[Rfam]
RNA sequence: CGGACACUGGAGCGUGCGUCGAGCAUUCUCAUCCCGGAGACCUUACGUUUCUGAUAGGGAGCUGUCCCUGCCCUUGGCCGUGGCCUCGGGCACACGGCGCCCACCUGGUAAUCCAGGUCAUCGGGGAUGUUCAGAUGCUGACGGCGCAAUCGGUUCCGCC
Number, nucleotide and partner (000 for none) at each position: 001c158002g157003g156004a155005c000006a154007c153008u152009g151010g150011a000012g147013c146014g145015u144016g000017c143018g142019u141020c000021g000022a000023g000024c000025a000026u000027u000028c000029u000030c000031a000032u127033c126034c125035c124036g000037g122038a121039g000040a118041c117042c116043u000044u000045a000046c000047g000048u000049u000050u000051c000052u000053g000054a000055u000056a000057g102058g101059g100060a000061g098062c097063u096064g095065u094066c000067c000068c000069u000070g091071c090072c089073c088074u000075u000076g085077g084078c083079c000080g000081u000082g000083g078084c077085c076086u000087c000088g073089g072090g071091c070092a000093c000094a065095c064096g063097g062098c061099g000100c059101c058102c057103a000104c000105c000106u000107g000108g000109u000110a000111a000112u000113c000114c000115a000116g042117g041118u040119c000120a000121u038122c037123g000124g035125g034126g033127a032128u000129g000130u000131u000132c000133a000134g000135a000136u000137g000138c000139u000140g000141a019142c018143g017144g015145c014146g013147c012148a000149a000150u010151c009152g008153g007154u006155u004156c003157c002158g001159c000160c000
RNA: 6S / SsrS RNA